[Rfam]
RNA sequence: AUGAAGGCAUGGGGAGAGACUGCAUGGCGCAGCGCCGAAGGAGCAAGCUUAACAGCGAAUCUCUCAGGCAAAAGAACUCUUGCUGGACG
Numbered sequence: 001a002u003g004a005a006g007g008c009a010u011g012g013g014g015a016g017a018g019a020c021u022g023c024a025u026g027g028c029g030c031a032g033c034g035c036c037g038a039a040g041g042a043g044c045a046a047g048c049u050u051a052a053c054a055g056c057g058a059a060u061c062u063c064u065c066a067g068g069c070a071a072a073a074g075a076a077c078u079c080u081u082g083c084u085g086g087a088c089g
Stems, first nucleotide, its partner, number of pairs: 006084004011079003020032004034069003037065002041063003047056002
This 89-nucleotide sequence from Bacillus sp. MUM 13 belongs to the Rfam family "Glycine riboswitch aptamer". The source organism's lineage runs through Bacteria, Bacillota, Bacilli, Bacillaceae and Bacillus. A reference for the family is Mandal et al. (2004), "A glycine-dependent riboswitch that uses cooperative binding to control gene expression", Science. Its family is annotated with glycine biosynthetic process in the Gene Ontology. The match comes from Rfam's covariance-model search (69 bits).